Nucleotides: 421
Base pairs, nucleotide, nucleotide: 001061002060003059004058005057006056007055008054009053010044011043012042013041017039019037020036021035022034023033024032025031045122046121047120048119049118050117051116108187109186123289124288125287126286127285128284129283131281132280138319139318140317141316142315147172148171149170150169151168152167153164154163155162173200174199175198176197177196181193182192183191184190203274204273205272206271216259217258218257221234222233223232224231239255240254241253243251244250298314299313300312301311302310321398322397323396325394326393328347329346330345331344334341335340348414349413350412353386355384356383357382358381406420407419408418
Number, partner (000 for none) and nucleotide at each position: 001061g002060a003059a004058a005057g006056u007055u008054g009053a010044g011043u012042g013041g014000c015000a016000u017039u018000u019037g020036c021035u022034u023033c024032u025031u026000c027000a028000a029000a030000a031025g032024a033023g034022a035021a036020g037019u038000u039017a040000a041013c042012c043011a044010c045122c046121u047120c048119a049118g050117a051116g052000c053009u054008c055007a056006a057005c058004u059003u060002u061001c062000a063000u064000u065000a066000c067000a068000c069000u070000c071000a072000c073000u074000a075000u076000g077000u078000u079000g080000g081000a082000u083000u084000a085000a086000u087000u088000a089000a090000a091000a092000a093000u094000u095000a096000a097000a098000a099000c100000u101000a102000c103000a104000g105000a106000a107000a108187g109186g110000a111000a112000a113000a114000g115000u116051c117050u118049c119048u120047g121046a122045g123289c124288g125287g126286u127285u128284a129283a130000a131281c132280u133000g134000a135000a136000a137000g138319u139318c140317a141316c142315c143000u144000a145000a146000u147172u148171c149170c150169u151168u152167g153164g154163g155162u156000a157000g158000a159000a160000a161000u162155a163154c164153u165000a166000a167152c168151a169150a170149g171148g172147a173200g174199a175198u176197u177196g178000a179000c180000a181193g182192g183191a184190c185000c186109c187108c188000a189000a190184g191183u192182c193181c194000u195000u196177c197176a198175g199174u200173u201000u202000u203274g204273a205272c206271u207000a208000a209000g210000a211000a212000a213000g214000u215000c216259c217258u218257a219000g220000u221234a222233c223232c224231u225000g226000g227000g228000c229000a230000c231224g232223g233222g234221u235000u236000u237000a238000g239255g240254g241253a242000g243251u244250c245000c246000g247000c248000a249000a250244g251243a252000u253241u254240c255239c256000a257218u258217a259216g260000a261000g262000a263000u264000g265000a266000g267000u268000a269000a270000c271206a272205g273204u274203u275000g276000a277000g278000u279000a280132g281131g282000g283129u284128u285127a286126a287125c288124c289123g290000a291000a292000a293000c294000g295000a296000g297000u298314g299313a300312u301311u302310g303000a304000c305000g306000u307000a308000a309000a310302c311301a312300a313299u314298c315142g316141g317140u318139g319138a320000u321398g322397a323396c324000u325394u326393g327000a328347u329346a330345c331344c332000u333000u334341u335340g336000g337000c338000a339000a340335c341334a342000u343000c344331g345330g346329u347328g348414g349413a350412c351000a352000c353386g354000g355384g356383a357382g358381g359000a360000a361000c362000c363000c364000a365000a366000u367000g368000u369000a370000g371000a372000a373000u374000g375000g376000g377000a378000u379000a380000a381358u382357c383356u384355c385000a386353c387000a388000a389000a390000a391000g392000a393326c394325a395000g396323g397322u398321c399000a400000a401000c402000g403000a404000a405000a406420c407419g408418u409000a410000u411000a412350g413349u414348c415000u416000c417000a418408g419407c420406g421000u